RNA: Small nucleolar RNA SNORA26
Organism: Xenopus laevis
RNA sequence: UUGCCCACUUCAAGACAACAUUUCUUUAAGUGGCCAACACAGGGGGAUAUAUUAAAGAGCUCUCUAAAACUCAAAGCAAAAUGGUCGUUUUUGCUCUGAAUCCUGUCGGGAGCCAUACAA
Numbered sequence: 001u002u003g004c005c006c007a008c009u010u011c012a013a014g015a016c017a018a019c020a021u022u023u024c025u026u027u028a029a030g031u032g033g034c035c036a037a038c039a040c041a042g043g044g045g046g047a048u049a050u051a052u053u054a055a056a057g058a059g060c061u062c063u064c065u066a067a068a069a070c071u072c073a074a075a076g077c078a079a080a081a082u083g084g085u086c087g088u089u090u091u092u093g094c095u096c097u098g099a100a101u102c103c104u105g106u107c108g109g110g111a112g113c114c115a116u117a118c119a120a
Stems, first nucleotide, its partner, number of pairs: 002049002005046002008043003014038001019030001057114001060112005071099003075095003079091003083088001
Dot-bracket structure: .((.((.(((...(....(..........).......)..))).)).)).......(..(((((......(((.(((.(((.(....)))).))).)))........))))).)......